[Rfam]
RNA sequence: CAACCCAUACAGAGAUGUAUGGCUGAACUUUGAGAAGUCAGCAGAGGUCAUAGUACUUAUCUAGACAAUAAUAGAUAAGGAAGGAC
Numbered sequence: 001c002a003a004c005c006c007a008u009a010c011a012g013a014g015a016u017g018u019a020u021g022g023c024u025g026a027a028c029u030u031u032g033a034g035a036a037g038u039c040a041g042c043a044g045a046g047g048u049c050a051u052a053g054u055a056c057u058u059a060u061c062u063a064g065a066c067a068a069u070a071a072u073a074g075a076u077a078a079g080g081a082a083g084g085a086c
Stems, first nucleotide, its partner, number of pairs: 001025002005022007038045002047086003056079008

The family of this 86-nucleotide sequence from Thermoanaerobacter brockii is "Group II catalytic intron D1-D4-1". Gene Ontology term of the family: Group II intron splicing. For this family Rfam cites "Group II introns: structure and catalytic versatility of large natural ribozymes" (Lehmann and Schmidt, Crit Rev Biochem Mol Biol, 2003). NCBI's taxonomy places the organism under Bacteria, Bacillati, Clostridia, Thermoanaerobacter, Thermoanaerobacter brockii. The sequence is in the family's curated seed alignment.